[Rfam]
RNA sequence: CGAGCGAACUCUCGUUAAGGAACUCGGCAAAAUGACCCCGUAACUUCGGAAGAAGGGGUGCUGAUCGUCAGAUCAGCCGCAGUGAAUAGGCCCAAACAACUGUUUAUCAAAAACACAGGUCUCUGCUAAAUCGUAAGAUGACGUAUAGGGGCUGACGCCUGCCCGGUGCUGGAAGGUUAAGAGGAUGAGUUAGCGUAAGCGAAGCCCAGAAUUGAAGCCCCAGUAAACGGCGGCCGUAACUAUAACGGUCCUAAGGUAGCGAAAUUCCUUGUCGGGUAAGUUCCGACCCGCACGAAAGGCGUAAUGAUUUGGGCACUGUCUCAACGAGAGACUCG
Numbered sequence: 001c002g003a004g005c006g007a008a009c010u011c012u013c014g015u016u017a018a019g020g021a022a023c024u025c026g027g028c029a030a031a032a033u034g035a036c037c038c039c040g041u042a043a044c045u046u047c048g049g050a051a052g053a054a055g056g057g058g059u060g061c062u063g064a065u066c067g068u069c070a071g072a073u074c075a076g077c078c079g080c081a082g083u084g085a086a087u088a089g090g091c092c093c094a095a096a097c098a099a100c101u102g103u104u105u106a107u108c109a110a111a112a113a114c115a116c117a118g119g120u121c122u123c124u125g126c127u128a129a130a131u132c133g134u135a136a137g138a139u140g141a142c143g144u145a146u147a148g149g150g151g152c153u154g155a156c157g158c159c160u161g162c163c164c165g166g167u168g169c170u171g172g173a174a175g176g177u178u179a180a181g182a183g184g185a186u187g188a189g190u191u192a193g194c195g196u197a198a199g200c201g202a203a204g205c206c207c208a209g210a211a212u213u214g215a216a217g218c219c220c221c222a223g224u225a226a227a228c229g230g231c232g233g234c235c236g237u238a239a240c241u242a243u244a245a246c247g248g249u250c251c252u253a254a255g256g257u258a259g260c261g262a263a264a265u266u267c268c269u270u271g272u273c274g275g276g277u278a279a280g281u282u283c284c285g286a287c288c289c290g291c292a293c294g295a296a297a298g299g300c301g302u303a304a305u306g307a308u309u310u311g312g313g314c315a316c317u318g319u320c321u322c323a324a325c326g327a328g329a330g331a332c333u334c335g
Stems, first nucleotide, its partner, number of pairs: 001335004009330008018321003035059005044049001060077007078082001090314007097306002101115003118153008126143001130139003156301004161231003166228002168224005175219003181213002186208002189205002193200002232250006251255001261288001271287006